[Rfam]
This 596-nucleotide part of an RNA from Marteilia refringens belongs to the Rfam family "Eukaryotic small subunit ribosomal RNA".
Taxonomically the source falls in Marteilia (Eukaryota, Rhizaria, Ascetosporea, Paramyxida).
Its Rfam clan is "SSU clan".
Pairs were carried over by alignment from the consensus structure, which is taken from published work.

RNA sequence: CCUCUGAACUAGCGUUCGAGACUAAGCCAUGCAAGUGUAAGCUCAAGACCUCUCGUAGGUCGAAGCCGCAGACGGCUCCGUACAAGGCAGUUAAUCUACGGUCCAGCGAAAAAUCUACGGAUAUCUCUGGUAAGCUAGAGCCAAUACGUGUUACCAAUUCUCCGUGAGUCCUUCGGGGCGAGCGGGGUGCAGUUAUCGGAACGAGGUAGCGUGCUUCGGCGCGCAAUCAGAGGACUCUAGAUAACCUUGCCGACCGUGUAUAUUAUCCACGGCGUGGACCACGAGACUGCCACCUAUCAACUUUUGACGGUAGGGUAUUGGCCUACCGUGGUUGCAACGGGUACGGGGAAUCAGGGUUCGAUUCCGGAGAGUAGGCCUGAGAAACGGCCGCCAUUGCCACGGCACACAGCAGGCGCGCAAAUUUGUCAAUAUUCGAAAGAAUGAACGAGUGAGAACGUAUGGUCGGGUGGGACGAAUUUCGUUACCGCCACGUCGAUGAGACUAGUCCAAAAAGCUAGUCGAAUGCCACUGGAGGGCAAGUCUGGUGCCAGCAGCCGCGGUAAUUCCAGCUCCGGUAGUUCACGGGAUUAUUGCUG
Numbered sequence: 001c002c003u004c005u006g007a008a009c010u011a012g013c014g015u016u017c018g019a020g021a022c023u024a025a026g027c028c029a030u031g032c033a034a035g036u037g038u039a040a041g042c043u044c045a046a047g048a049c050c051u052c053u054c055g056u057a058g059g060u061c062g063a064a065g066c067c068g069c070a071g072a073c074g075g076c077u078c079c080g081u082a083c084a085a086g087g088c089a090g091u092u093a094a095u096c097u098a099c100g101g102u103c104c105a106g107c108g109a110a111a112a113a114u115c116u117a118c119g120g121a122u123a124u125c126u127c128u129g130g131u132a133a134g135c136u137a138g139a140g141c142c143a144a145u146a147c148g149u150g151u152u153a154c155c156a157a158u159u160c161u162c163c164g165u166g167a168g169u170c171c172u173u174c175g176g177g178g179c180g181a182g183c184g185g186g187g188u189g190c191a192g193u194u195a196u197c198g199g200a201a202c203g204a205g206g207u208a209g210c211g212u213g214c215u216u217c218g219g220c221g222c223g224c225a226a227u228c229a230g231a232g233g234a235c236u237c238u239a240g241a242u243a244a245c246c247u248u249g250c251c252g253a254c255c256g257u258g259u260a261u262a263u264u265a266u267c268c269a270c271g272g273c274g275u276g277g278a279c280c281a282c283g284a285g286a287c288u289g290c291c292a293c294c295u296a297u298c299a300a301c302u303u304u305u306g307a308c309g310g311u312a313g314g315g316u317a318u319u320g321g322c323c324u325a326c327c328g329u330g331g332u333u334g335c336a337a338c339g340g341g342u343a344c345g346g347g348g349a350a351u352c353a354g355g356g357u358u359c360g361a362u363u364c365c366g367g368a369g370a371g372u373a374g375g376c377c378u379g380a381g382a383a384a385c386g387g388c389c390g391c392c393a394u395u396g397c398c399a400c401g402g403c404a405c406a407c408a409g410c411a412g413g414c415g416c417g418c419a420a421a422u423u424u425g426u427c428a429a430u431a432u433u434c435g436a437a438a439g440a441a442u443g444a445a446c447g448a449g450u451g452a453g454a455a456c457g458u459a460u461g462g463u464c465g466g467g468u469g470g471g472a473c474g475a476a477u478u479u480c481g482u483u484a485c486c487g488c489c490a491c492g493u494c495g496a497u498g499a500g501a502c503u504a505g506u507c508c509a510a511a512a513a514g515c516u517a518g519u520c521g522a523a524u525g526c527c528a529c530u531g532g533a534g535g536g537c538a539a540g541u542c543u544g545g546u547g548c549c550a551g552c553a554g555c556c557g558c559g560g561u562a563a564u565u566c567c568a569g570c571u572c573c574g575g576u577a578g579u580u581c582a583c584g585g586g587a588u589u590a591u592u593g594c595u596g
Stems, first nucleotide, its partner, number of pairs: 001586003005582006012458006019450001020416001026414003030411003035069002041066002047061002076369003086291003091286002095284002101279004116150004125140006157188005165180001193244005207229001212221003254272005260266001293341003300332003307329008344366004348359004371392001374389003395404003422448001424447003430443005464492002466489005472482004500520002504516003529575006542569004551558002
On this family, see Yusupov et al., Science 2001: "Crystal structure of the ribosome at 5.5 A resolution".
The sequence is in the family's curated seed alignment.